RNA: Plastid-rps18 3UTR RNA
Organism: Cynara cardunculus
RNA sequence: GUCAAGUAUUUUACGAUUAAGAAACAACUGUCUUUUAUACAAAUAGUUUAUAUAUAU
Numbered sequence: 001g002u003c004a005a006g007u008a009u010u011u012u013a014c015g016a017u018u019a020a021g022a023a024a025c026a027a028c029u030g031u032c033u034u035u036u037a038u039a040c041a042a043a044u045a046g047u048u049u050a051u052a053u054a055u056a057u
Base pairs, nucleotide, nucleotide: 018037019036020035021034022033024031025030